[Rfam]
RNA: caulobacter sRNA CC1840
Organism: Phenylobacterium hankyongense
RNA sequence: CAAGGUUGUUCGUCGCGCUCUCCCGUCCCUCGAAGCGGCGGACCACCUGAUGGAACGACACGCCCAUCGGCGGCGCGCCACCCCUAAACCGGUGGCGCGCC
Numbered sequence: 001c002a003a004g005g006u007u008g009u010u011c012g013u014c015g016c017g018c019u020c021u022c023c024c025g026u027c028c029c030u031c032g033a034a035g036c037g038g039c040g041g042a043c044c045a046c047c048u049g050a051u052g053g054a055a056c057g058a059c060a061c062g063c064c065c066a067u068c069g070g071c072g073g074c075g076c077g078c079c080a081c082c083c084c085u086a087a088a089c090c091g092g093u094g095g096c097g098c099g100c101c
Stems, first nucleotide, its partner, number of pairs: 004047003008043009072101011